[Rfam]
RNA sequence: GCUUUGCUUAUUUGUAAGUCGCUUUGGACAAAAGCGUCUGCUAAAUGAAUAAAU
Numbered sequence: 001g002c003u004u005u006g007c008u009u010a011u012u013u014g015u016a017a018g019u020c021g022c023u024u025u026g027g028a029c030a031a032a033a034g035c036g037u038c039u040g041c042u043a044a045a046u047g048a049a050u051a052a053a054u
Stems, first nucleotide, its partner, number of pairs: 013043001014041003020036006
Overview:
This 54-nucleotide RNA from Ameiurus melas belongs to the Rfam family "UnaL2 LINE 3' element". By type it is a cis-regulatory element. From the family's description: The eel long interspersed element (LINE) UnaL2 and its partner short interspersed element (SINE) share a conserved 3' tail containing a stem-loop that is critical for their retrotransposition. Presumably, the first step of retrotransposition is the recognition of their 3' tails by UnaL2-encoded reverse transcriptase. A reference for the family is Baba et al. (2004), "Solution structure of an RNA stem-loop derived from the 3' conserved region of eel LINE UnaL2", RNA. The base pairs follow the family's consensus structure, which is taken from published work. A search with the family's covariance model found it, with a score of 59 bits.